[Rfam]
RNA sequence: CCAACGUGGACAUCCAGUGAGGUUGCUCUCACGUGGCUCUGUCCAGGUGGCACGUGGGAGCGUAGCACCUUUGGGUGUGGUGACGUAUAGUCCCGUUCCACAACGUUGGAGAAUAUGUUUGUCCUUGGCUCUUGGGCACUUGAGGGCAGCGUCCUGUAUAUUCCUACAACUUCUCAGAGUCUCUGGACAGUUACUGAGGAGACAAACCAUGCAGGACACAUGC
Numbered sequence: 001c002c003a004a005c006g007u008g009g010a011c012a013u014c015c016a017g018u019g020a021g022g023u024u025g026c027u028c029u030c031a032c033g034u035g036g037c038u039c040u041g042u043c044c045a046g047g048u049g050g051c052a053c054g055u056g057g058g059a060g061c062g063u064a065g066c067a068c069c070u071u072u073g074g075g076u077g078u079g080g081u082g083a084c085g086u087a088u089a090g091u092c093c094c095g096u097u098c099c100a101c102a103a104c105g106u107u108g109g110a111g112a113a114u115a116u117g118u119u120u121g122u123c124c125u126u127g128g129c130u131c132u133u134g135g136g137c138a139c140u141u142g143a144g145g146g147c148a149g150c151g152u153c154c155u156g157u158a159u160a161u162u163c164c165u166a167c168a169a170c171u172u173c174u175c176a177g178a179g180u181c182u183c184u185g186g187a188c189a190g191u192u193a194c195u196g197a198g199g200a201g202a203c204a205a206a207c208c209a210u211g212c213a214g215g216a217c218a219c220a221u222g223c
Stems, first nucleotide, its partner, number of pairs: 001109007008044005014036003019028003047101004056094004060088001062086002065081002153215007170201006179188003
Dot-bracket structure: ((((((((((((.(((..(((....))).....)))...)))))..((((.....(((((.((.((.............))...)).)..))))...)))).)))))))...........................................(((((((..........((((((...(((....))).......)))))).......)))))))........
A member of the RNA family "Small nucleolar RNA SNORA73 family" from Geotrypetes seraphini, 223 nucleotides long.
The organism belongs to Geotrypetes, within Eukaryota.
The match comes from Rfam's covariance-model search (204 bits).
The literature on the family includes a 1996 paper in RNA by Enright et al., "5'ETS rRNA processing facilitated by four small RNAs: U14, E3, U17, and U3".
Its family is annotated with RNA processing and nucleolus in the Gene Ontology.
It is annotated as an H/ACA-box small nucleolar RNA.